[Rfam]
mir-71 microRNA precursor family: a 69-nucleotide RNA from Lingula anatina. Rfam 15.1 lists 372 matches to the family in 291 species. A reference for the family is Yu et al. (2008), "The silkworm (Bombyx mori) microRNAs and their expressions in multiple developmental stages", PLoS One. Its family is annotated with RISC complex and miRNA-mediated post-transcriptional gene silencing in the Gene Ontology. Taxonomically the source falls in Lingula (Eukaryota, Opisthokonta, Eumetazoa, Bilateria).

RNA sequence: UCUGUGUGAAAGACAUGGGUAGUGAGAUGCUGUACUUGUGUACCUCACUACCGUGUCUUUUGCAUGGAG
Numbered sequence: 001u002c003u004g005u006g007u008g009a010a011a012g013a014c015a016u017g018g019g020u021a022g023u024g025a026g027a028u029g030c031u032g033u034a035c036u037u038g039u040g041u042a043c044c045u046c047a048c049u050a051c052c053g054u055g056u057c058u059u060u061u062g063c064a065u066g067g068a069g
Base pairs, nucleotide, nucleotide: 008061009060010059011058012057013056014055015054018052019051021049022048023047024046025045026044028042029041